RNA sequence: ACGUCGUCACAACGGCUUCCUGGCGUGACGAUACACAUCUAAUGGAGCA
Numbered sequence: 001a002c003g004u005c006g007u008c009a010c011a012a013c014g015g016c017u018u019c020c021u022g023g024c025g026u027g028a029c030g031a032u033a034c035a036c037a038u039c040u041a042a043u044g045g046a047g048c049a
Stems, first nucleotide, its partner, number of pairs: 004031007013022002015048003019045002

Annotation: This 49-nucleotide sequence belongs to the Rfam family "SAM/SAH riboswitch aptamer". Gene Ontology terms of the family: regulation of gene expression and S-adenosylmethionine metabolic process. Pairs were carried over by alignment from the consensus structure, which is taken from published work. The sequence is in the family's curated seed alignment.